[Rfam]
RNA: Guanidine-II riboswitch aptamer (mini-ykkC)
Organism: Paenirhodobacter populi
Nucleotides: 049
Stems, first nucleotide, its partner, number of pairs: 004017005036049005
Number, partner (000 for none) and nucleotide at each position: 001000c002000c003000u004017u005016c006015g007014g008013g009000a010000c011000g012000a013008c014007c015006c016005g017004a018000c019000c020000a021000c022000g023000a024000u025000g026000g027000g028000a029000c030000a031000g032000u033000u034000c035000g036049c037048c038047g039046g040045g041000a042000c043000g044000a045040c046039c047038c048037g049036g